The family of this 86-nucleotide sequence from Cocos nucifera is "Small nucleolar RNA U54". Rfam 15.1 lists 614 matches to the family in 206 species. For this family Rfam cites "The high diversity of snoRNAs in plants: identification and comparative study of 120 snoRNA genes from Oryza sativa" (Chen et al., Nucleic Acids Res, 2003).
RNA sequence: AGCUUGAUGAUUACAGCCAAUUAUUUUUUGGCAAUAUAUGCUAUUCUGAGAAAGUUAAAGGGCUGAAAUUGGAACGUAUGAGAGCU
Numbered sequence: 001a002g003c004u005u006g007a008u009g010a011u012u013a014c015a016g017c018c019a020a021u022u023a024u025u026u027u028u029u030g031g032c033a034a035u036a037u038a039u040g041c042u043a044u045u046c047u048g049a050g051a052a053a054g055u056u057a058a059a060g061g062g063c064u065g066a067a068a069u070u071g072g073a074a075c076g077u078a079u080g081a082g083a084g085c086u
Stems, first nucleotide, its partner, number of pairs: 001086005
U54 is a C/D box small nucleolar RNA, which acts as a methylation guide for 18S ribosomal RNA in plants.